[Rfam]
RNA sequence: AUCAAGCAUCAAGAGUUGCCCAGUUGUGGCACACCAACCGAGUUUCACAUAGAGAUAACCACGGUGGUAAAAGGAUGCGUAAGUGUUUAACAACUUAAAAUAAUUAUCUUUA
Dot-bracket structure: .....(((((....(.((((.......)))))(((..(((.((...[..........))..))).))).....))))).((((..........)))).........].....
Numbered sequence: 001a002u003c004a005a006g007c008a009u010c011a012a013g014a015g016u017u018g019c020c021c022a023g024u025u026g027u028g029g030c031a032c033a034c035c036a037a038c039c040g041a042g043u044u045u046c047a048c049a050u051a052g053a054g055a056u057a058a059c060c061a062c063g064g065u066g067g068u069a070a071a072a073g074g075a076u077g078c079g080u081a082a083g084u085g086u087u088u089a090a091c092a093a094c095u096u097a098a099a100a101u102a103a104u105u106a107u108c109u110u111u112a
Stems, first nucleotide, its partner, number of pairs: 006078005015032001017031004033068003038064003042059002047107001080097004

This 112-nucleotide sequence from Prevotella sp. CAG:386 belongs to the Rfam family "SAM-I/IV (S-adenosyl methionine) riboswitch aptamer". It scores 52 bits against the family's covariance model. For this family Rfam cites "Structural basis for diversity in the SAM clan of riboswitches" (Trausch et al., PNAS, 2014). The organism belongs to Prevotella, within Bacteria.